[Rfam]
This 97-nucleotide RNA sequence from Glaciibacter psychrotolerans belongs to the Rfam family "Bacterial small signal recognition particle RNA". Taxonomically the source falls in Glaciibacter (Bacteria, Actinomycetota, Actinomycetes, Microbacteriaceae). The signal recognition particle (SRP) is a universally conserved ribonucleoprotein involved in the co-translational targeting of proteins to membranes. The match comes from Rfam's covariance-model search (60 bits). The family's RNA type in Rfam is non-coding RNA gene. The family's consensus secondary structure is taken from published work.
RNA sequence: AACGGCUCCUCGUGUGGUGUCAUCCAGGCCAACUCCCCCAGGACGGAAACGUAGCAAGGGUAACCGGGCUCUGGCAGGUGCGCGAGGAGUCAUUAUU
Number, nucleotide and partner (000 for none) at each position: 001a000002a000003c000004g091005g090006c089007u088008c087009c086010u085011c084012g083013u082014g081015u078016g000017g000018u076019g075020u074021c073022a072023u000024c068025c067026a000027g065028g064029c000030c000031a000032a000033c000034u000035c060036c059037c058038c000039c000040a000041g000042g000043a052044c051045g050046g000047a000048a000049a000050c045051g044052u043053a000054g000055c000056a000057a000058g037059g036060g035061u000062a000063a000064c028065c027066g000067g025068g024069c000070u000071c000072u022073g021074g020075c019076a018077g000078g015079u000080g000081c014082g013083c012084g011085a010086g009087g008088a007089g006090u005091c004092a000093u000094u000095a000096u000097u000